[Rfam]
RNA sequence: AAGAACCCUGCCUCGUGGUCGUCUUCUCACCGUUCACCCGGCAGGCGGACAGAGUGAGGCCCCCGCGGGGACAUGACCCGCGGGGGCUUCCG
Numbered sequence: 001a002a003g004a005a006c007c008c009u010g011c012c013u014c015g016u017g018g019u020c021g022u023c024u025u026c027u028c029a030c031c032g033u034u035c036a037c038c039c040g041g042c043a044g045g046c047g048g049a050c051a052g053a054g055u056g057a058g059g060c061c062c063c064c065g066c067g068g069g070g071a072c073a074u075g076a077c078c079c080g081c082g083g084g085g086g087c088u089u090c091c092g
Stems, first nucleotide, its partner, number of pairs: 003046001007045006015037004021031001056090014

sodF sRNA: a 92-nucleotide RNA sequence from Streptomyces toyocaensis.
Lineage of the source: Bacteria > Bacillati > Actinomycetes > Kitasatosporales > Streptomyces.
The family's RNA type in Rfam is small RNA.
It scores 74 bits against the family's covariance model.
Pairs were carried over by alignment from the consensus structure.